[Rfam]
RNA: U1 spliceosomal RNA
RNA sequence: UCACUUACCUGGACGGGGUCAAUGGGUGAUCAAAAAGACUCAUGGCCUAGGUUGGUGACCGCCAUUGCACAUUAAGGUGGGGUGCCCGCCUAAGGUCUGCCCAAAGUGGCAGAGCCUACGUCAUAAUUUGUGGUAGCGGGGGCCUGCGUUCGCGCGGCCCCCUC
Numbered sequence: 001u002c003a004c005u006u007a008c009c010u011g012g013a014c015g016g017g018g019u020c021a022a023u024g025g026g027u028g029a030u031c032a033a034a035a036a037g038a039c040u041c042a043u044g045g046c047c048u049a050g051g052u053u054g055g056u057g058a059c060c061g062c063c064a065u066u067g068c069a070c071a072u073u074a075a076g077g078u079g080g081g082g083u084g085c086c087c088g089c090c091u092a093a094g095g096u097c098u099g100c101c102c103a104a105a106g107u108g109g110c111a112g113a114g115c116c117u118a119c120g121u122c123a124u125a126a127u128u129u130g131u132g133g134u135a136g137c138g139g140g141g142g143c144c145u146g147c148g149u150u151c152g153c154g155c156g157g158c159c160c161c162c163u164c
Stems, first nucleotide, its partner, number of pairs: 012122004016048006023042005049091003053088001055085003059081002062077002093117003096113003100109002138163005145156004